[Rfam]
RNA: Lysine riboswitch aptamer
Organism: Brevibacillus borstelensis
RNA sequence: GAGUGAGGUAGAGGCGCGAAAACCAUGAGUACCACCCUGAGAUCGGGAUCGUUGACGGGUAGCGGAAAGGGGGAUUCGCCGAAGUACGGAGGGAAGACCCGCUUCCUUGCGUGCUGGGCCUGUGUUGAACAAAUACAGGACUGUCAUCUGAGCAAUACCCCAUUGCCGGAUGGAGAGCUAUCUCACGA
Numbered sequence: 001g002a003g004u005g006a007g008g009u010a011g012a013g014g015c016g017c018g019a020a021a022a023c024c025a026u027g028a029g030u031a032c033c034a035c036c037c038u039g040a041g042a043u044c045g046g047g048a049u050c051g052u053u054g055a056c057g058g059g060u061a062g063c064g065g066a067a068a069g070g071g072g073g074a075u076u077c078g079c080c081g082a083a084g085u086a087c088g089g090a091g092g093g094a095a096g097a098c099c100c101g102c103u104u105c106c107u108u109g110c111g112u113g114c115u116g117g118g119c120c121u122g123u124g125u126u127g128a129a130c131a132a133a134u135a136c137a138g139g140a141c142u143g144u145c146a147u148c149u150g151a152g153c154a155a156u157a158c159c160c161c162a163u164u165g166c167c168g169g170a171u172g173g174a175g176a177g178c179u180a181u182c183u184c185a186c187g188a
Stems, first nucleotide, its partner, number of pairs: 006183006016079005023072002032062001034060004083115006090108005116142002119139008144173007